[Rfam]
RNA sequence: CUUUGUAUUCUUCCACAGCUUUCUUGAACUGCAUCCAAAUUGAGUUCCUUUGCAUUGCCAUGGCCAUUGUUUUGCGGUUCAAUAAAGCUGUGGGAAGAUACAGAUA
Numbered sequence: 001c002u003u004u005g006u007a008u009u010c011u012u013c014c015a016c017a018g019c020u021u022u023c024u025u026g027a028a029c030u031g032c033a034u035c036c037a038a039a040u041u042g043a044g045u046u047c048c049u050u051u052g053c054a055u056u057g058c059c060a061u062g063g064c065c066a067u068u069g070u071u072u073u074g075c076g077g078u079u080c081a082a083u084a085a086a087g088c089u090g091u092g093g094g095a096a097g098a099u100a101c102a103g104a105u106a
Base pairs, nucleotide, nucleotide: 003103004102005101006100007099013093014092015091017089018088019087020086021085022084024082025081026080027079029077030076031075032074033073
A member of the RNA family "MIR396 microRNA precursor family", 106 nucleotides long. On this family, see Jones-Rhoades and Bartel, Mol Cell 2004: "Computational identification of plant microRNAs and their targets, including a stress-induced miRNA". It is one of the family's seed sequences.